Shown here is a 137-nucleotide sequence from Cryptotermes secundus, a member of the family "Small nucleolar RNA SNORA15". NCBI's taxonomy places the organism under Eukaryota, Panarthropoda, Pancrustacea, Polyneoptera, Cryptotermes. Rfam classes the family as an H/ACA-box small nucleolar RNA.
RNA sequence: GCAUGGCAGAAUUCCAAAUUCCAUUUCCUAUUGGUUUGUUUGGUCAGACACCAUGCAAUAAUAAAGUGACACUGAUCAGACUUCAUACUAAGUACAGCAGUGUUUAGCUGUAGGAAGUACUGUUCAUUGUUACAAUA
Numbered sequence: 001g002c003a004u005g006g007c008a009g010a011a012u013u014c015c016a017a018a019u020u021c022c023a024u025u026u027c028c029u030a031u032u033g034g035u036u037u038g039u040u041u042g043g044u045c046a047g048a049c050a051c052c053a054u055g056c057a058a059u060a061a062u063a064a065a066g067u068g069a070c071a072c073u074g075a076u077c078a079g080a081c082u083u084c085a086u087a088c089u090a091a092g093u094a095c096a097g098c099a100g101u102g103u104u105u106a107g108c109u110g111u112a113g114g115a116a117g118u119a120c121u122g123u124u125c126a127u128u129g130u131u132a133c134a135a136u137a
Base pairs, nucleotide, nucleotide: 001056002055003054004053005052006051014043015042016041017040018039019038069130070129071128073126074125075124077122078121079120086119087118088117089116093112094111095110096109097108

The literature on the family includes a 2001 paper in EMBO J by Huttenhofer et al., "RNomics: an experimental approach that identifies 201 candidates for novel, small, non-messenger RNAs in mouse". ACA15 is a member of the H/ACA class of snoRNA that guide the sites of modification of uridines to pseudouridines. Pairs were carried over by alignment from the consensus structure, which was predicted with RNAfold.